[Rfam]
RNA sequence: UUAAAAAACGUACCUUAUCUAAUUAAGGUGAAGCUGGAGCGGAGGAACCAAAUUUUGGGGCUUAUCGAUGAGAGAUUAAAAAUUAAAAAUAGUAAUCCUAAUUUUUAAUUUUGCAUUCUUAAUUUCUCAGAGAGGGACAUCUCUCAGUCCUCGCCCGUCAGCUAACUCCGUCGGCAUUGAGAGGAGACUGA
Numbered sequence: 001u002u003a004a005a006a007a008a009c010g011u012a013c014c015u016u017a018u019c020u021a022a023u024u025a026a027g028g029u030g031a032a033g034c035u036g037g038a039g040c041g042g043a044g045g046a047a048c049c050a051a052a053u054u055u056u057g058g059g060g061c062u063u064a065u066c067g068a069u070g071a072g073a074g075a076u077u078a079a080a081a082a083u084u085a086a087a088a089a090u091a092g093u094a095a096u097c098c099u100a101a102u103u104u105u106u107a108a109u110u111u112u113g114c115a116u117u118c119u120u121a122a123u124u125u126c127u128c129a130g131a132g133a134g135g136g137a138c139a140u141c142u143c144u145c146a147g148u149c150c151u152c153g154c155c156c157g158u159c160a161g162c163u164a165a166c167u168c169c170g171u172c173g174g175c176a177u178u179g180a181g182a183g184g185a186g187a188c189u190g191a
Base pairs, nucleotide, nucleotide: 011176013174014173018038019037020036039171040170041169042168043167044166049057050056058156059155060154066132135150136149137148138147

Shown here is a 191-nucleotide sequence from Coleofasciculus sp. FACHB-SPT36, a member of the family "c-di-AMP riboswitch aptamer (ydaO/yuaA leader)". Lineage of the source: Bacteria > Cyanobacteriota > Cyanophyceae > Coleofasciculales > Coleofasciculus. Pairs were carried over by alignment from the consensus structure. A search with the family's covariance model found it, with a score of 54 bits.